[Rfam]
RNA sequence: UAAGCUACUGUCCCAGGGAGGGAGGGCCGCCGUGUGCGGCAAAUACCUCUUUAACUGGGCAGUAAAAACC
Numbered sequence: 001u002a003a004g005c006u007a008c009u010g011u012c013c014c015a016g017g018g019a020g021g022g023a024g025g026g027c028c029g030c031c032g033u034g035u036g037c038g039g040c041a042a043a044u045a046c047c048u049c050u051u052u053a054a055c056u057g058g059g060c061a062g063u064a065a066a067a068a069c070c
Base pairs, nucleotide, nucleotide: 006065009062012059013058014057015056016055017050018049019048020047021046026040027039028038029037030036
Hepatitis C virus stem-loop VII: a 70-nucleotide RNA from Orthohepacivirus hominis. Rfam classes the family as a cis-regulatory element. Lineage of the source: Viruses > Orthornavirae > Amarillovirales > Hepaciviridae > Orthohepacivirus. For this family Rfam cites "The Coding Region of the HCV Genome Contains a Network of Regulatory RNA Structures" (Pirakitikulr et al., Mol Cell, 2016).